Source information:
Rfam assigns this 407-nucleotide RNA from Porphyromonas gingivalis to the family "transfer-messenger RNA". The organism belongs to Porphyromonas gingivalis, within Bacteria. By type it is a non-coding RNA gene. The base pairs follow the family's consensus structure, which is taken from published work. The sequence is in the family's curated seed alignment.
RNA sequence: GGGGCUGACCGGCUUUGACAGCGUGAUGAAGCGGUAUGUAAGCAUGUAGUGCGUGGGUGGCUUGCACUAUAAUCUCAGACAUCAAAAGUUUAAUUGGCGAAAAUAACUACGCUCUCGCUGCGUAAUCGAAGAAUAGUAGAUUAGACGCUUCAUCGCCGCCAAAGUGGCAGCGACGAGACAUCGCCCGAGCAGCUUUUUCCCGAAGUAGCUCGAUGGUGCGGUGCUGACAAAUCGGGAACCGCUACAGGAUGCUUCCUGCCUGUGGUCAGAUCGAACGGAAGAUAAGGAUCGUGCAUUGGGUCGUUUCAGCCUCCGCUCGCUCACGAAAAUUCCAACUGAAACUAAACAUGUAGAAAGCAUAUUGAUUCCAUGUUUGGACGAGGGUUCAAUUCCCUCCAGCUCCACCA
Numbered sequence: 001g002g003g004g005c006u007g008a009c010c011g012g013c014u015u016u017g018a019c020a021g022c023g024u025g026a027u028g029a030a031g032c033g034g035u036a037u038g039u040a041a042g043c044a045u046g047u048a049g050u051g052c053g054u055g056g057g058u059g060g061c062u063u064g065c066a067c068u069a070u071a072a073u074c075u076c077a078g079a080c081a082u083c084a085a086a087a088g089u090u091u092a093a094u095u096g097g098c099g100a101a102a103a104u105a106a107c108u109a110c111g112c113u114c115u116c117g118c119u120g121c122g123u124a125a126u127c128g129a130a131g132a133a134u135a136g137u138a139g140a141u142u143a144g145a146c147g148c149u150u151c152a153u154c155g156c157c158g159c160c161a162a163a164g165u166g167g168c169a170g171c172g173a174c175g176a177g178a179c180a181u182c183g184c185c186c187g188a189g190c191a192g193c194u195u196u197u198u199c200c201c202g203a204a205g206u207a208g209c210u211c212g213a214u215g216g217u218g219c220g221g222u223g224c225u226g227a228c229a230a231a232u233c234g235g236g237a238a239c240c241g242c243u244a245c246a247g248g249a250u251g252c253u254u255c256c257u258g259c260c261u262g263u264g265g266u267c268a269g270a271u272c273g274a275a276c277g278g279a280a281g282a283u284a285a286g287g288a289u290c291g292u293g294c295a296u297u298g299g300g301u302c303g304u305u306u307c308a309g310c311c312u313c314c315g316c317u318c319g320c321u322c323a324c325g326a327a328a329a330u331u332c333c334a335a336c337u338g339a340a341a342c343u344a345a346a347c348a349u350g351u352a353g354a355a356a357g358c359a360u361a362u363u364g365a366u367u368c369c370a371u372g373u374u375u376g377g378a379c380g381a382g383g384g385u386u387c388a389a390u391u392c393c394c395u396c397c398a399g400c401u402c403c404a405c406c407a
Base pairs, nucleotide, nucleotide: 001403002402003401004400005399006398007397019376020375021374030366032364033363034362035361036360037359038358039357043350044349045348046347047346048068049067050066051065052064056083057082058081059080061078062077113175115173116172117171118170119169120168121167179223180222181221182220183219186212187211188210190208192206193205197238198237199236200235201234202233203232241266242265243264244263245262246261252281253280254279255278256277283326287322288321290319291318298312299311300310303342304341305340308337309336380396381395382394383393384392
Dot-bracket structure: (((((((...........(((........(.((((((((...((((((((((...[[[[.[[.)))))........]].]]]].............................(.(((((((.............................................))))))).)...[[[[[..[[[.[.[[...(((((((.]].].]]]......]]]]]........)))))))..((((((.....[[[[[....))))))..........]]]]].(...((.((......(((..[[[..[[))).....)).))...).........]]..]]]...)))))......)))))))).).......)))...(((((.......))))))))))))....